[Rfam]
RNA sequence: GGUAGUAGCAAAUACUCAAAUGAGAACUUUGAGGACUGAAGUGGGGAAAGGUUCCGUGUGAACAGCAGUUGGACACGGGUUAGUCGAUCCUAAGAGAUAGGGAAACUCCGUUUUAAUGUCGGCGCUUGCGCUGCACCCUCGAAAGGGAAGCCGGUUAAUAUUCCGGCACCUGGAUGUAGAUUCUCCGCGGCAACGCAACUGAGAGCGGAGACCUUGGCAGGAGCCCCAAGAAGAGUUAUCUUUUCUUCUUAACAGUUUAUUACCUUAAAAUUAGUUUGUCUAAAGCUAGAGUUAAAUAGCUAGAAGAGCGCUGUACUUUUGUAGCAUUUGGUGCGCUUCUAACAAGCUUUAAAAAUCUGCUUAAAGAAAUAGUUUUUACGCUAGGUUGUACUUAUAACUGCAGCAGGUCUCUAAGGUAAAAAGCCUCUAGUUAA
Numbered sequence: 001g002g003u004a005g006u007a008g009c010a011a012a013u014a015c016u017c018a019a020a021u022g023a024g025a026a027c028u029u030u031g032a033g034g035a036c037u038g039a040a041g042u043g044g045g046g047a048a049a050g051g052u053u054c055c056g057u058g059u060g061a062a063c064a065g066c067a068g069u070u071g072g073a074c075a076c077g078g079g080u081u082a083g084u085c086g087a088u089c090c091u092a093a094g095a096g097a098u099a100g101g102g103a104a105a106c107u108c109c110g111u112u113u114u115a116a117u118g119u120c121g122g123c124g125c126u127u128g129c130g131c132u133g134c135a136c137c138c139u140c141g142a143a144a145g146g147g148a149a150g151c152c153g154g155u156u157a158a159u160a161u162u163c164c165g166g167c168a169c170c171u172g173g174a175u176g177u178a179g180a181u182u183c184u185c186c187g188c189g190g191c192a193a194c195g196c197a198a199c200u201g202a203g204a205g206c207g208g209a210g211a212c213c214u215u216g217g218c219a220g221g222a223g224c225c226c227c228a229a230g231a232a233g234a235g236u237u238a239u240c241u242u243u244u245c246u247u248c249u250u251a252a253c254a255g256u257u258u259a260u261u262a263c264c265u266u267a268a269a270a271u272u273a274g275u276u277u278g279u280c281u282a283a284a285g286c287u288a289g290a291g292u293u294a295a296a297u298a299g300c301u302a303g304a305a306g307a308g309c310g311c312u313g314u315a316c317u318u319u320u321g322u323a324g325c326a327u328u329u330g331g332u333g334c335g336c337u338u339c340u341a342a343c344a345a346g347c348u349u350u351a352a353a354a355a356u357c358u359g360c361u362u363a364a365a366g367a368a369a370u371a372g373u374u375u376u377u378a379c380g381c382u383a384g385g386u387u388g389u390a391c392u393u394a395u396a397a398c399u400g401c402a403g404c405a406g407g408u409c410u411c412u413a414a415g416g417u418a419a420a421a422a423g424c425c426u427c428u429a430g431u432u433a434a
Base pairs, nucleotide, nucleotide: 015033016032017031018030019029020028034432035431036430037429043412044411045410046409049392050391054078055077056076057075058074059073063071064070085388086387087386089146090145094140095139096112097111098110100109101108102107119133121131150167151166152165153164154163170384171383172382173381175380176379177378178377179376180374187196188195189194204361205360206359207358208357209356213346214345215344216343219340220339221338222337223336224335226331227330228329229249230248231247232246233245234244254301255300256299257298262292263291265289266288267287271283272282273281274280310325311324312323313322314321315320398407399406414426415425416424417423
Dot-bracket structure: ..............((((((.......))))))((((.....((((..((...((((((...((.....)).))))))......(((.((...(((((.(((....))))))......(.(.........).).....))....))...(((((........)))))..((((.((((((......(((....))).......((((((...((((..((((((.(((((((((.........))))))....((((....((.(((...((((.....))))...))).)).....))))........((((((....))))))...)))...))))))..)))).........))))))............).))))))))).)))..)).....((......)).)))).((((.....))))..))))..